Shown here is a 586-nucleotide part of an RNA from Thalassotalea sp. LPB0316, a member of the family "Bacterial small subunit ribosomal RNA".
[Rfam]
Nucleotides: 586
Base pairs, nucleotide, nucleotide: 001477002476003474004473005472007471008470009469010468011467012466013465015461016460019425020424021423022422023421024318026316027315028314029313030312031311032310033309034307035306040055041054042053043052064302065301066300067299068298069297070296077124078123079121080120081119082118083117086103088101089100090099091098092097105116107114108113127291128290130289131288132287133286136285137284138280139279140278141276143274144273148187149186150185151184152183153182154163155162156161166179167178168177169176193268194267195266196265198236199235200234201233202232203231208225209224212223213222214221239259240258242256243255244254245253246252322377323376324375325374326373327372328371334365335364336363339358340357344353345352346351384415389410390409391408392407393406394405395404431453432452433451434450435449436448437447480585482582485578486577490572491571492570493569495567496566497565500562501561502560503559504558505557506556507555508554509553510552511551516547517546518545519544520543521542523541524540525539526538529536530535
Number, partner (000 for none) and nucleotide at each position: 001477u002476g003474a004473c005472g006000g007471g008470g009469g010468c011467c012466c013465g014000c015461a016460c017000a018000a019425g020424c021423g022422g023421u024318g025000g026316a027315g028314c029313a030312u031311g032310u033309g034307g035306u036000u037000u038000a039000a040055u041054u042053c043052g044000a045000u046000g047000c048000a049000a050000c051000g052043c053042g054041a055040a056000g057000a058000a059000c060000c061000u062000u063000a064302c065301c066300a067299u068298c069297c070296c071000u072000u073000g074000a075000c076000a077124u078123c079121c080120a081119g082118a083117g084000a085000a086103u087000u088101u089100u090099c091098u092097a093000g094000a095000g096000a097092u098091a099090g100089a101088a102000u103086a104000g105116u106000g107114c108113c109000u110000u111000c112000g113108g114107g115000a116105a117083c118082u119081c120080u121079g122000a123078g124077a125000c126000a127291g128290g129000u130289g131288c132287u133286g134000c135000a136285u137284g138280g139279c140278u141276g142000u143274c144273g145000u146000c147000a148187g149186c150185u151184c152183g153182u154163g155162u156161u157000g158000u159000g160000a161156a162155a163154u164000g165000u166179u167178g168177g169176g170000u171000u172000a173000a174000g175000u176169c177168c178167c179166g180000c181000a182153a183152c184151g185150a186149g187148c188000g189000c190000a191000a192000c193268c194267c195266c196265u197000a198236u199235c200234c201233u202232u203231a204000c205000u206000u207000g208225c209224c210000a211000g212223c213222g214221g215000a216000u217000g218000a219000u220000g221214c222213c223212g224209g225208g226000a227000a228000c229000u230000u231203u232202a233201a234200g235199g236198a237000g238000a239259c240258u241000g242256c243255c244254g245253g246252u247000g248000a249000u250000a251000a252246a253245c254244c255243g256242g257000a258240g259239g260000a261000a262000g263000g264000u265196g266195g267194g268193g269000a270000c271000g272000a273144c274143g275000u276141c277000a278140a279139g280138u281000c282000a283000u284137c285136a286133u287132g288131g289130c290128c291127c292000u293000u294000a295000c296070g297069g298068g299067a300066u301065g302064g303000g304000c305000u306035a307034c308000a309033c310032a311031c312030g313029u314028g315027c316026u317000a318024c319000a320000a321000u322377g323376g324375c325374g326373u327372a328371u329000a330000c331000a332000g333000a334365g335364g336363g337000c338000a339358g340357c341000g342000a343000g344353a345352c346351c347000g348000c349000g350000a351346g352345g353344u354000g355000g356000a357340g358339c359000g360000a361000a362000u363336c364335c365334c366000a367000g368000a369000a370000a371328g372327u373326a374325c375324g376323u377322c378000g379000u380000a381000g382000u383000c384415c385000g386000g387000a388000u389410u390409g391408g392407a393406g394405u395404c396000u397000g398000c399000a400000a401000c402000u403000c404395g405394a406393c407392u408391c409390c410389a411000u412000g413000a414000a415384g416000u417000c418000g419000g420000a421023a422022u423021c424020g425019c426000u427000a428000g429000u430000a431453a432452u433451c434450g435449u436448g437447a438000a439000u440000c441000a442000g443000a444000a445000u446000g447437u448436c449435a450434c451433g452432g453431u454000g455000a456000a457000u458000a459000c460016g461015u462000u463000c464000c465013c466012g467011g468010g469009c470008c471007u472005u473004g474003u475000a476002c477001a478000c479000a480585c481000c482582g483000c484000c485578c486577g487000u488000c489000a490572c491571a492570c493569c494000a495567u496566g497565g498000g499000a500562g501561u502560g503559g504558g505557u506556u507555g508554c509553a510552a511551a512000a513000g514000a515000a516547g517546u518545g519544g520543c521542u522000a523541g524540u525539u526538u527000a528000a529536c530535c531000u532000u533000c534000g535530g536529g537000a538526g539525g540524a541523c542521g543520g544519u545518c546517a547516c548000c549000a550000c551511u552510u553509u554508g555507u556506g557505a558504u559503u560502c561501a562500u563000g564000a565497c566496u567495g568000g569493g570492g571491u572490g573000a574000a575000g576000u577486c578485g579000u580000a581000a582482c583000a584000a585480g586000g